[Rfam]
RNA sequence: CCUGCUCGCGUGAACCCACGCAGCGGGUCGGUAUGUGGCCCUCACGGGCUGAACCCGCAA
Numbered sequence: 001c002c003u004g005c006u007c008g009c010g011u012g013a014a015c016c017c018a019c020g021c022a023g024c025g026g027g028u029c030g031g032u033a034u035g036u037g038g039c040c041c042u043c044a045c046g047g048g049c050u051g052a053a054c055c056c057g058c059a060a
Base pairs, nucleotide, nucleotide: 001027002026003025004024005023030055031054037050038049039048040047041046
The family of this 60-nucleotide RNA sequence from Halococcus thailandensis is "eL15-Euryarchaeota ribosomal protein leader".
The organism belongs to Halococcus thailandensis, within Archaea.
The base pairs follow the family's consensus structure, which is taken from published work.
On this family, see Eckert and Weinberg, BMC Microbiol 2020: "Discovery of 20 novel ribosomal leader candidates in bacteria and archaea".
The sequence is in the family's curated seed alignment.